A member of the RNA family "U4atac minor spliceosomal RNA" from Diabrotica virgifera, 120 nucleotides long. Gene Ontology terms of the family: spliceosomal tri-snRNP complex assembly, U4atac snRNP and pre-mRNA 5'-splice site binding.
RNA sequence: UUUAUCCUUGUCUUGGGGAGCUGAGUCUGUCCAUGAUCGUUUAGUGAGACAACUCUGCUGAAACCAAGUAAAAUAUACCCGCACCCGCUUACAAUUUAGCCGAGUGCAAUUUUUGGAAGA
Numbered sequence: 001u002u003u004a005u006c007c008u009u010g011u012c013u014u015g016g017g018g019a020g021c022u023g024a025g026u027c028u029g030u031c032c033a034u035g036a037u038c039g040u041u042u043a044g045u046g047a048g049a050c051a052a053c054u055c056u057g058c059u060g061a062a063a064c065c066a067a068g069u070a071a072a073a074u075a076u077a078c079c080c081g082c083a084c085c086c087g088c089u090u091a092c093a094a095u096u097u098a099g100c101c102g103a104g105u106g107c108a109a110u111u112u113u114u115g116g117a118a119g120a
Stems, first nucleotide, its partner, number of pairs: 005019005020058002023055004028051004038044001081107004086102001089098001

U4atac is an essential component of the minor U12-type spliceosome complex which is required for removal of the rarer class of eukaryotic introns (AT-AC, U12-type). Rfam classes the family as a spliceosomal small nuclear RNA. On this family, see Lorkovic et al., RNA 2005: "Evolutionary conservation of minor U12-type spliceosome between plants and humans". A search with the family's covariance model found it, with a score of 75 bits.